[Rfam]
RNA: RT-18 RNA
RNA sequence: CACCACUUGGUGAAGAUUUUGUCAUAGGGAUAUGGGCUAGUAGGCAGUUGCUCGAAAACCCGUAAGACAAACAAGGAA
Numbered sequence: 001c002a003c004c005a006c007u008u009g010g011u012g013a014a015g016a017u018u019u020u021g022u023c024a025u026a027g028g029g030a031u032a033u034g035g036g037c038u039a040g041u042a043g044g045c046a047g048u049u050g051c052u053c054g055a056a057a058a059c060c061c062g063u064a065a066g067a068c069a070a071a072c073a074a075g076g077a078a
Stems, first nucleotide, its partner, number of pairs: 001012004020069004031064006043053002045050001